RNA sequence: UCUUCAUUCGACGUACUCUCUCGCCGGUCAGAGAGACGAGAGAGUACGAGGAAUGAAGAGA
Numbered sequence: 001u002c003u004u005c006a007u008u009c010g011a012c013g014u015a016c017u018c019u020c021u022c023g024c025c026g027g028u029c030a031g032a033g034a035g036a037c038g039a040g041a042g043a044g045u046a047c048g049a050g051g052a053a054u055g056a057a058g059a060g061a
Stems, first nucleotide, its partner, number of pairs: 001059007012048006019041004

About this RNA:
Shown here is a 61-nucleotide sequence from Pristionchus pacificus, a member of the family "mir-8364 microRNA precursor family". The match comes from Rfam's covariance-model search (73 bits). Its family is annotated with miRNA-mediated post-transcriptional gene silencing and RISC complex in the Gene Ontology. The family has 13 seed sequences and 3,320 matches in Rfam 15.1.